[Rfam]
U12 minor spliceosomal RNA: a 150-nucleotide RNA sequence from Ailuropoda melanoleuca. The family's RNA type in Rfam is spliceosomal small nuclear RNA. A search with the family's covariance model found it, with a score of 96 bits. Pairs were carried over by alignment from the consensus structure. The organism belongs to Ailuropoda, within Eukaryota. The family is grouped with related families in Rfam's "U2 clan".

RNA sequence: AUGCCUUAAACUUAUGAGUAAGGAAAAUAACAAGUCGGGGUACCACCCAAAUCCUCACUGCUAAUGUUAGAUGAAUUUGUGAGUGGAUACGGGCUGCCCCUAAGGUGAUCCACCUACUUGGUAGGAUGCCCGGGAGUCAUGAUCUGCCCA
Numbered sequence: 001a002u003g004c005c006u007u008a009a010a011c012u013u014a015u016g017a018g019u020a021a022g023g024a025a026a027a028u029a030a031c032a033a034g035u036c037g038g039g040g041u042a043c044c045a046c047c048c049a050a051a052u053c054c055u056c057a058c059u060g061c062u063a064a065u066g067u068u069a070g071a072u073g074a075a076u077u078u079g080u081g082a083g084u085g086g087a088u089a090c091g092g093g094c095u096g097c098c099c100c101u102a103a104g105g106u107g108a109u110c111c112a113c114c115u116a117c118u119u120g121g122u123a124g125g126a127u128g129c130c131c132g133g134g135a136g137u138c139a140u141g142a143u144c145u146g147c148c149c150a
Stems, first nucleotide, its partner, number of pairs: 004023005033052001035050001037048003054070002057067002084150003088146001091145003095141002100134002104130004109125002112122002